Rfam assigns this 144-nucleotide RNA sequence from Gossypium lobatum to the family "MIR7502 microRNA precursor family".
Lineage of the source: Eukaryota > Tracheophyta > Magnoliopsida > Mesangiospermae > Gossypium.
RNA sequence: UGUUAAAAAAUUCAUUCAUUUCUACUGUUAAAAAUUGGCAUGGCCGACAGAAUAACCAAAUAAUCACACAUGUCGUGCCACGUGUACCUCAUGCUGAUACACAUUGACCAUUUUUAAUAGUAGAAAUGGAUACAAUUUUUAACA
Numbered sequence: 001u002g003u004u005a006a007a008a009a010a011u012u013c014a015u016u017c018a019u020u021u022c023u024a025c026u027g028u029u030a031a032a033a034a035u036u037g038g039c040a041u042g043g044c045c046g047a048c049a050g051a052a053u054a055a056c057c058a059a060a061u062a063a064u065c066a067c068a069c070a071u072g073u074c075g076u077g078c079c080a081c082g083u084g085u086a087c088c089u090c091a092u093g094c095u096g097a098u099a100c101a102c103a104u105u106g107a108c109c110a111u112u113u114u115u116a117a118u119a120g121u122a123g124a125a126a127u128g129g130a131u132a133c134a135a136u137u138u139u140u141a142a143c144a
Base pairs, nucleotide, nucleotide: 002143003142004141005140006139007138008137009136011134014131015130016129018127019126020125021124022123023122024121025120026119028117029116030115031114032113033112